[Rfam]
RNA: freshwater-2 RNA
RNA sequence: AGCUAAAUAUAUUUAGUUCGAUGAUUAUGCAGUAUCCAUUCUGCGUAGACCUAGAACGUCAAUAUAUAUAAGGAGAAACAAAAAUG
Dot-bracket structure: ((((((......)))))).......(((((((........)))))))((.........))..........................